Record summary: Rfam assigns this 131-nucleotide RNA sequence from Knoellia remsis to the family "FMN riboswitch aptamer (RFN element)". A search with the family's covariance model found it, with a score of 91 bits.
[Rfam]
RNA sequence: CGACGUGCUCCGGGGUCGGUGCAAUUCCGAACCGGCGGUGACAGUCCGCGACCCGGCCGCAGCCAGCGGCCGGUUGACCAGGUGGAACUCCUGGACCGACGGUGAAAGUCCGGAUGGUAGGCAGCACGUGA
Numbered sequence: 001c002g003a004c005g006u007g008c009u010c011c012g013g014g015g016u017c018g019g020u021g022c023a024a025u026u027c028c029g030a031a032c033c034g035g036c037g038g039u040g041a042c043a044g045u046c047c048g049c050g051a052c053c054c055g056g057c058c059g060c061a062g063c064c065a066g067c068g069g070c071c072g073g074u075u076g077a078c079c080a081g082g083u084g085g086a087a088c089u090c091c092u093g094g095a096c097c098g099a100c101g102g103u104g105a106a107a108g109u110c111c112g113g114a115u116g117g118u119a120g121g122c123a124g125c126a127c128g129u130g131a
Stems, first nucleotide, its partner, number of pairs: 003129007010120001017029003031109002033098002035049004044096002053073002078094005100112003